[Rfam]
RNA: Bacterial small signal recognition particle RNA
RNA sequence: GCCCGGAGCCUGUGCAACGCCAGCCUUCGAACCGCGUCAGGACCGGAAGGUAGCAGCGCUAAGGAGUGUUCUGCCGUGUGCCGCAGAUCCUCCGGGUCGC
Numbered sequence: 001g002c003c004c005g006g007a008g009c010c011u012g013u014g015c016a017a018c019g020c021c022a023g024c025c026u027u028c029g030a031a032c033c034g035c036g037u038c039a040g041g042a043c044c045g046g047a048a049g050g051u052a053g054c055a056g057c058g059c060u061a062a063g064g065a066g067u068g069u070u071c072u073g074c075c076g077u078g079u080g081c082c083g084c085a086g087a088u089c090c091u092c093c094g095g096g097u098c099g100c
Stems, first nucleotide, its partner, number of pairs: 004094005010086005015078001017077003021073002025066004034059004042051003